[Rfam]
RNA sequence: UUAGUUUUUCGGGGCGAGGUGCAAUUCCUCACCGGCGGUAAAGUCCGCGAGCUUUUUGGCUGAAUUGGUGAAAUUCCAAUACCGACAGUAUAGUCUGGAUGAGAGAAAAAUUAU
Numbered sequence: 001u002u003a004g005u006u007u008u009u010c011g012g013g014g015c016g017a018g019g020u021g022c023a024a025u026u027c028c029u030c031a032c033c034g035g036c037g038g039u040a041a042a043g044u045c046c047g048c049g050a051g052c053u054u055u056u057u058g059g060c061u062g063a064a065u066u067g068g069u070g071a072a073a074u075u076c077c078a079a080u081a082c083c084g085a086c087a088g089u090a091u092a093g094u095c096u097g098g099a100u101g102a103g104a105g106a107a108a109a110a111u112u113a114u
Base pairs, nucleotide, nucleotide: 003112004111005110006109007108008107009106010105017029018028019027031094032093033084034083035048036047037046038045043082044081051060052059053058064080065079066078067077068076086097087096088095